[Rfam]
RNA sequence: AGUGAGAAUAGAGGUGCAAAGACCAUCAGUACAAUAUUUGAGGAGUAUGAGCUCCAACGACGAUAUUGAAAAGGGGAAUUUGCCGAAGUAUGAUAACACUCAUAAUCUAUCAUACUGGUUUUGUAUUAAAUAAGUGCAAAACUGUCAUAUAGUUGAUACUAUAUGGAGGGCUAUCUCACGU
Numbered sequence: 001a002g003u004g005a006g007a008a009u010a011g012a013g014g015u016g017c018a019a020a021g022a023c024c025a026u027c028a029g030u031a032c033a034a035u036a037u038u039u040g041a042g043g044a045g046u047a048u049g050a051g052c053u054c055c056a057a058c059g060a061c062g063a064u065a066u067u068g069a070a071a072a073g074g075g076g077a078a079u080u081u082g083c084c085g086a087a088g089u090a091u092g093a094u095a096a097c098a099c100u101c102a103u104a105a106u107c108u109a110u111c112a113u114a115c116u117g118g119u120u121u122u123g124u125a126u127u128a129a130a131u132a133a134g135u136g137c138a139a140a141a142c143u144g145u146c147a148u149a150u151a152g153u154u155g156a157u158a159c160u161a162u163a164u165g166g167a168g169g170g171c172u173a174u175c176u177c178a179c180g181u
Stems, first nucleotide, its partner, number of pairs: 006176001008174004016083005023076002032068007087116009117143011145166007

Lysine riboswitch aptamer: a 181-nucleotide RNA sequence from Bacillus solimangrovi. It scores 123 bits against the family's covariance model. From the family's description: Riboswitches are metabolite binding domains within certain messenger RNAs that serve as precision sensors for their corresponding targets. Allosteric rearrangement of mRNA structure is mediated by ligand binding, and this results in modulation of gene expression. This family includes riboswitches that sense lysine in a number of genes involved in lysine metabolism, including lysC. Lineage of the source: Bacteria > Bacillati > Bacillota > Bacilli > Bacillus.